[Rfam]
RNA sequence: GCUACUCUGAUAGUCUCGUAGCAACCGUGCUGUAAUCAGCAGAAGAGUACGUAAUCUAACUCAACGGCUAAAGGAUUAC
Numbered sequence: 001g002c003u004a005c006u007c008u009g010a011u012a013g014u015c016u017c018g019u020a021g022c023a024a025c026c027g028u029g030c031u032g033u034a035a036u037c038a039g040c041a042g043a044a045g046a047g048u049a050c051g052u053a054a055u056c057u058a059a060c061u062c063a064a065c066g067g068c069u070a071a072a073g074g075a076u077u078a079c
Stems, first nucleotide, its partner, number of pairs: 001022004028041005045062004051079006
Record summary:
Rfam assigns this 79-nucleotide sequence to the family "Lacto-phage-1 RNA". Rfam's curators put it in the seed alignment. By type it is a small RNA.